[Rfam]
RNA sequence: ACAAACGAAUAUGACUUACCGUAGACAGCAGGUGCUUGAAUAGGCUUAAUUUCCUGCCGAGGUGUUAUGAUAUAGAAUCACCAAUCUUUGAUGAACGACAAAGAUCAUGUGAAUCAUCAUGCCUUCGCAGUGUCUGCGAAGGCAUUUUCGCGUUUUAG
Numbered sequence: 001a002c003a004a005a006c007g008a009a010u011a012u013g014a015c016u017u018a019c020c021g022u023a024g025a026c027a028g029c030a031g032g033u034g035c036u037u038g039a040a041u042a043g044g045c046u047u048a049a050u051u052u053c054c055u056g057c058c059g060a061g062g063u064g065u066u067a068u069g070a071u072a073u074a075g076a077a078u079c080a081c082c083a084a085u086c087u088u089u090g091a092u093g094a095a096c097g098a099c100a101a102a103g104a105u106c107a108u109g110u111g112a113a114u115c116a117u118c119a120u121g122c123c124u125u126c127g128c129a130g131u132g133u134c135u136g137c138g139a140a141g142g143c144a145u146u147u148u149c150g151c152g153u154u155u156u157a158g
Base pairs, nucleotide, nucleotide: 028057029056030055031054032053034045035044036043120144121143122142123141124140125139126138127137128136129135
The family of this 158-nucleotide RNA from Paenibacillus xerothermodurans is "Ribosomal protein L10 leader".
From the family's description: This family is a putative r-protein leader autoregulatory structure found in B. subtilis and other low-GC Gram-positive bacteria. It is located in the 5' untranslated regions of mRNAs encoding ribosomal proteins L10 and L12 (rplJ-rplL). A Rho-independent transcription terminator structure that is probably involved in regulation is included at the 3' end.
The source organism's lineage runs through Bacteria, Bacillota, Caryophanales, Paenibacillaceae and Paenibacillus.
Pairs were carried over by alignment from the consensus structure, which was predicted with CMfinder.